[Rfam]
RNA: Group II catalytic intron D1-D4-6
Organism: Clostridium thermosuccinogenes
RNA sequence: GAACUCCUACCUGUUUAAUGCCUGAGCUGGGCAGACAGUAGCAAGUCAUGGAUGUAUCAUAGUAAUAGGGUACAUUAAGCGUUGACAGUUAGGUAAUGGGCCUGAAAGUGAUUGAGCUGCGAAAUUUUUUUAAAAUUGUAAUGGUCGACGAAUUCCAGAUUUCGGAAGACAAAACUGGUGAAUGCGUUACCGGCGAGCAUUCAUAAGCAUUACCGCAGUCGAAGAGCC
Numbered sequence: 001g002a003a004c005u006c007c008u009a010c011c012u013g014u015u016u017a018a019u020g021c022c023u024g025a026g027c028u029g030g031g032c033a034g035a036c037a038g039u040a041g042c043a044a045g046u047c048a049u050g051g052a053u054g055u056a057u058c059a060u061a062g063u064a065a066u067a068g069g070g071u072a073c074a075u076u077a078a079g080c081g082u083u084g085a086c087a088g089u090u091a092g093g094u095a096a097u098g099g100g101c102c103u104g105a106a107a108g109u110g111a112u113u114g115a116g117c118u119g120c121g122a123a124a125u126u127u128u129u130u131u132a133a134a135a136u137u138g139u140a141a142u143g144g145u146c147g148a149c150g151a152a153u154u155c156c157a158g159a160u161u162u163c164g165g166a167a168g169a170c171a172a173a174a175c176u177g178g179u180g181a182a183u184g185c186g187u188u189a190c191c192g193g194c195g196a197g198c199a200u201u202c203a204u205a206a207g208c209a210u211u212a213c214c215g216c217a218g219u220c221g222a223a224g225a226g227c228c
Stems, first nucleotide, its partner, number of pairs: 012037004020032004026194002039091004045086004049081002051076008060067002113222001114220001116219006138213006144170003149164004175207002178204008